[Rfam]
RNA: Small nucleolar RNA SNORD42
Organism: Tursiops truncatus
RNA sequence: GCGCAAAUGAUGGAAAAAUCACUAUUUGGGGCGGGGGAGUGACAUGAACAAAGGAACCACUGAUAUGC
Numbered sequence: 001g002c003g004c005a006a007a008u009g010a011u012g013g014a015a016a017a018a019u020c021a022c023u024a025u026u027u028g029g030g031g032c033g034g035g036g037g038a039g040u041g042a043c044a045u046g047a048a049c050a051a052a053g054g055a056a057c058c059a060c061u062g063a064u065a066u067g068c
Base pairs, nucleotide, nucleotide: 001068002067003066005064